[Rfam]
A member of the RNA family "mir-2849 microRNA precursor family" from Bombyx mori, 97 nucleotides long.
Pairs were carried over by alignment from the consensus structure, which was predicted with RNAalifold.
Rfam links the family to the GO terms miRNA-mediated post-transcriptional gene silencing and RISC complex.
It is one of the family's seed sequences.

RNA sequence: GUGGACGUUUAACUUUACGAUUAUGGACUCAGUUCCAAAAGAUAACUGGUGUUUUAUGUGGGACGAAACCGUGGCGGGUUGAGGUGGAAAUGAAAUG
Numbered sequence: 001g002u003g004g005a006c007g008u009u010u011a012a013c014u015u016u017a018c019g020a021u022u023a024u025g026g027a028c029u030c031a032g033u034u035c036c037a038a039a040a041g042a043u044a045a046c047u048g049g050u051g052u053u054u055u056a057u058g059u060g061g062g063a064c065g066a067a068a069c070c071g072u073g074g075c076g077g078g079u080u081g082a083g084g085u086g087g088a089a090a091u092g093a094a095a096u097g
Stems, first nucleotide, its partner, number of pairs: 006092005012085006018076002021074006029066002032064006039055006